[Rfam]
RNA: Glycine riboswitch aptamer
RNA sequence: GGAGCAGUUUCUGGAGAGACCGCAACUACAAUUGCGGCGCCGAAGGGUUCACAAUCUCAGGCAAAAGGACAGAAAAGUAUCA
Numbered sequence: 001g002g003a004g005c006a007g008u009u010u011c012u013g014g015a016g017a018g019a020c021c022g023c024a025a026c027u028a029c030a031a032u033u034g035c036g037g038c039g040c041c042g043a044a045g046g047g048u049u050c051a052c053a054a055u056c057u058c059a060g061g062c063a064a065a066a067g068g069a070c071a072g073a074a075a076a077g078u079a080u081c082a
Base pairs, nucleotide, nucleotide: 008075009074010073011072012071013070020037021036022035023034039062040061041060042058043057046056047055048054